[Rfam]
Annotation: Small nucleolar RNA SNORD113/SNORD114 family: a 75-nucleotide RNA sequence from Ailuropoda melanoleuca. A search with the family's covariance model found it, with a score of 59 bits. On this family, see Cavaille et al., Hum Mol Genet 2002: "Identification of tandemly-repeated C/D snoRNA genes at the imprinted human 14q32 domain reminiscent of those at the Prader-Willi/Angelman syndrome region". The imprinted human domain at 14q32 contains two clusters of tandemly repeated small nucleolar RNAs named 14q(I) and 14q(II) snoRNAs. These two clusters are named SNORD113 and SNORD114 respectively in the HGNC approved gene symbol nomenclature. The snoRNAs found in both clusters are clearly related and are represented here by a single family. These snoRNAs are intron encoded and are processed from the tissue-specific non-coding human MEG8 RNA, which lies downstream of the imprinted genes DLK1 and GTL2. snoRNAs 14q(I) and 14q(II) differ from previously identified C/D box snoRNAs in their expression profiles and lack of complementarity to rRNA and snRNA. Homologues of these snoRNAs are found in the imprinted non-coding mouse transcript Rian, and in the rat non-coding Bsr (brain-specific repetitive) RNA. The base pairs follow the family's consensus structure, which is taken from published work.

RNA sequence: UGGACCAGUGAUGACGACAGGGGAUGGGUGAGUCAUGGGUGAUGAGCAGUAUGCGUCUGGGUAUCUGAGGUCCAA
Numbered sequence: 001u002g003g004a005c006c007a008g009u010g011a012u013g014a015c016g017a018c019a020g021g022g023g024a025u026g027g028g029u030g031a032g033u034c035a036u037g038g039g040u041g042a043u044g045a046g047c048a049g050u051a052u053g054c055g056u057c058u059g060g061g062u063a064u065c066u067g068a069g070g071u072c073c074a075a
Base pairs, nucleotide, nucleotide: 002073003072004071005070006069